Shown here is a 51-nucleotide RNA, a member of the family "DUF2693-FD RNA".
Rfam's curators put it in the seed alignment.
About the family: DUF2693-FD RNA is a non-coding RNA (ncRNA) recognised in Bacteroides by a bioinformatic analisis by Zasha Weinberg.
It is annotated as a small RNA.

[Rfam]
RNA sequence: CCCCUGCUGACGGCCAGCGACCGGCAACCGAUAGCGAGAAUCGGGUGGGGG
Numbered sequence: 001c002c003c004c005u006g007c008u009g010a011c012g013g014c015c016a017g018c019g020a021c022c023g024g025c026a027a028c029c030g031a032u033a034g035c036g037a038g039a040a041u042c043g044g045g046u047g048g049g050g051g
Stems, first nucleotide, its partner, number of pairs: 001051007011023002019035001025038001028044005